c-di-AMP riboswitch aptamer (ydaO/yuaA leader): a 148-nucleotide RNA from Blastococcus sp. TF02-8. The match comes from Rfam's covariance-model search (67 bits). NCBI's taxonomy places the organism under Bacteria, Actinomycetota, Geodermatophilales, Geodermatophilaceae, Blastococcus. About the family: This family represents a conserved RNA structure found upstream of the ydaO and yuaA genes in Bacillus subtilis and related genes in other bacteria.
RNA sequence: AAUCGCCCGCUGCCGUCGUGCCGCGGGGGAGCCGGGGACCCACCGCAGUACUGGGGUGAAUCCUGUGCCGGGCGCCAGCCGGGCACGGGUAGGGCUACUUCUGAGCCCGAAUCCGUCAGCUAACUCGGUAGGCGGCCGGACAGGAGAA
Numbered sequence: 001a002a003u004c005g006c007c008c009g010c011u012g013c014c015g016u017c018g019u020g021c022c023g024c025g026g027g028g029g030a031g032c033c034g035g036g037g038a039c040c041c042a043c044c045g046c047a048g049u050a051c052u053g054g055g056g057u058g059a060a061u062c063c064u065g066u067g068c069c070g071g072g073c074g075c076c077a078g079c080c081g082g083g084c085a086c087g088g089g090u091a092g093g094g095c096u097a098c099u100u101c102u103g104a105g106c107c108c109g110a111a112u113c114c115g116u117c118a119g120c121u122a123a124c125u126c127g128g129u130a131g132g133c134g135g136c137c138g139g140a141c142a143g144g145a146g147a148a
Base pairs, nucleotide, nucleotide: 004134005133006132007131011030013028031129032128033127034126035125036124041053042052054114055113056112062089063088064087065086066085067084068083069082092108093107094106095105